Shown here is a 114-nucleotide sequence from Chrysemys picta, a member of the family "mraW RNA". The family's RNA type in Rfam is cis-regulatory element. Lineage of the source: Eukaryota > Deuterostomia > Chordata > Chrysemys > Chrysemys picta.
Nucleotides: 114
Base pairs, nucleotide, nucleotide: 010101011100012099013098014097015096016095018093019092021090022089023088024087025086026085027084028083029082030081031080032079033078034077036075037074038073039072040071041070042069043068044067045066046065047064048063049062050061
Number, partner (000 for none) and nucleotide at each position: 001000u002000u003000g004000c005000a006000g007000u008000g009000u010101a011100g012099a013098c014097a015096u016095u017000u018093g019092g020000g021090c022089u023088c024087g025086g026085g027084c028083u029082g030081g031080a032079g033078c034077c035000a036075g037074g038073g039072c040071u041070c042069u043068g044067g045066g046065a047064c048063c049062c050061u051000u052000c053000c054000c055000c056000a057000u058000c059000a060000c061050a062049g063048g064047g065046u066045c067044c068043c069042a070041g071040a072039g073038c074037c075036c076000a077034g078033g079032c080031u081030c082029c083028a084027g085026u086025c087024u088023g089022a090021g091000c092019c093018u094000c095016a096015g097014u098013g099012u100011c101010u102000a103000c104000a105000c106000u107000g108000c109000a110000a111000u112000u113000u114000u